RNA sequence: UUGUGAGGUAGAGGCGCGGUUGUUCAAGAGCCAUAACAGAGUAUGAGGAUACUAUGACGUUAUGAGGAGGGGACAUCGCCGAAGCAACUAUUACGUCCUCACGUAAUUGCGCUGGGUCUGCAGUGAAUAAUUGCAGGACUGUCUUAAUGAUUGUACCAAAUUCAUUAAGUUGAGCUAUCUCAUUA
Numbered sequence: 001u002u003g004u005g006a007g008g009u010a011g012a013g014g015c016g017c018g019g020u021u022g023u024u025c026a027a028g029a030g031c032c033a034u035a036a037c038a039g040a041g042u043a044u045g046a047g048g049a050u051a052c053u054a055u056g057a058c059g060u061u062a063u064g065a066g067g068a069g070g071g072g073a074c075a076u077c078g079c080c081g082a083a084g085c086a087a088c089u090a091u092u093a094c095g096u097c098c099u100c101a102c103g104u105a106a107u108u109g110c111g112c113u114g115g116g117u118c119u120g121c122a123g124u125g126a127a128u129a130a131u132u133g134c135a136g137g138a139c140u141g142u143c144u145u146a147a148u149g150a151u152u153g154u155a156c157c158a159a160a161u162u163c164a165u166u167a168a169g170u171u172g173a174g175c176u177a178u179c180u181c182a183u184u185a
Stems, first nucleotide, its partner, number of pairs: 006180006016079005022074004032064006083113003088109001090107006114140002117137008143169008
The record is a 185-nucleotide RNA from Caryophanon tenue, which matches "Lysine riboswitch aptamer" in Rfam. Rfam links the family to the GO term lysine biosynthetic process. Taxonomically the source falls in Caryophanon (Bacteria, Bacillati, Bacillota, Bacilli). A search with the family's covariance model found it, with a score of 85 bits.